[Rfam]
RNA sequence: AACAUCCUGCGAUGUACGUUACGGUUUUAAGUUGUUUUGAACCAAUGACUGUUUCACGGGAGACCAACAUGUCCGACGCGGCUGACAUGCCCUCGAAAAGGGACUUCAAAAACGUCGCUGAGGUCACCCACCUGCGAGAGCGGGUUUGAAACACUAAAUCGGACGGCAUUUGCGGGUUUUUA
Numbered sequence: 001a002a003c004a005u006c007c008u009g010c011g012a013u014g015u016a017c018g019u020u021a022c023g024g025u026u027u028u029a030a031g032u033u034g035u036u037u038u039g040a041a042c043c044a045a046u047g048a049c050u051g052u053u054u055c056a057c058g059g060g061a062g063a064c065c066a067a068c069a070u071g072u073c074c075g076a077c078g079c080g081g082c083u084g085a086c087a088u089g090c091c092c093u094c095g096a097a098a099a100g101g102g103a104c105u106u107c108a109a110a111a112a113c114g115u116c117g118c119u120g121a122g123g124u125c126a127c128c129c130a131c132c133u134g135c136g137a138g139a140g141c142g143g144g145u146u147u148g149a150a151a152c153a154c155u156a157a158a159u160c161g162g163a164c165g166g167c168a169u170u171u172g173c174g175g176g177u178u179u180u181u182a
Stems, first nucleotide, its partner, number of pairs: 002180001004178001006176006012169004017165003033153004038148006058129003062125004069119001074117005085106001090102004
Shown here is a 182-nucleotide RNA from Paenibacillus contaminans, a member of the family "6S / SsrS RNA". The organism belongs to Paenibacillus, within Bacteria. The literature on the family includes a 2000 paper in Cell by Wassarman and Storz, "6S RNA regulates E. coli RNA polymerase activity". Pairs were carried over by alignment from the consensus structure, which is taken from published work. About the family: E. coli 6S RNA was the first non coding RNA to be sequenced, but its function was unknown until recently.